Nucleotides: 237
Base pairs, nucleotide, nucleotide: 001154002153003152004151005150017142018141019140028132029131030130032129033128034127038054039053040052041051042050055114056113057112058111059110060109061108155170156169157168158167
Number, partner (000 for none) and nucleotide at each position: 001154g002153a003152g004151c005150g006000u007000a008000a009000g010000u011000c012000a013000g014000u015000g016000g017142u018141g019140u020000u021000g022000a023000c024000u025000g026000c027000a028132c029131a030130u031000g032129c033128a034127g035000g036000a037000c038054g039053c040052g041051g042050g043000u044000g045000c046000g047000a048000u049000a050042c051041c052040c053039g054038c055114c056113g057112c058111g059110u060109c061108c062000a063000c064000c065000a066000u067000a068000a069000u070000c071000g072000g073000c074000u075000g076000u077000c078000u079000g080000u081000c082000g083000a084000g085000a086000g087000g088000g089000c090000a091000g092000u093000u094000c095000g096000g097000c098000c099000g100000a101000u102000u103000a104000u105000g106000c107000u108061g109060g110059g111058c112057g113056c114055g115000a116000a117000a118000u119000a120000g121000g122000a123000u124000c125000g126000a127034c128033u129032g130030g131029u132028g133000u134000g135000u136000a137000a138000a139000g140019a141018c142017a143000g144000a145000u146000g147000c148000u149000g150005c151004g152003u153002u154001c155170c156169g157168g158167c159000a160000u161000g162000a163000u164000a165000c166000c167158g168157u169156c170155g171000u172000u173000a174000u175000c176000g177000g178000g179000u180000c181000a182000a183000c184000a185000a186000u187000g188000u189000a190000a191000g192000u193000g194000c195000u196000a197000a198000c199000a200000g201000c202000a203000a204000u205000g206000u207000u208000c209000c210000a211000c212000u213000u214000g215000u216000u217000g218000a219000g220000c221000u222000a223000c224000g225000u226000a227000a228000a229000g230000u231000a232000g233000c234000c235000u236000a237000a
This 237-nucleotide RNA sequence from Rhizobium sp. PDO1-076 belongs to the Rfam family "permuted transfer-messenger RNA".
The family's RNA type in Rfam is non-coding RNA gene.
Pairs were carried over by alignment from the consensus structure, which is taken from published work.
For this family Rfam cites "Phylogenetic analysis of tmRNA secondary structure" (Williams and Bartel, RNA, 1996).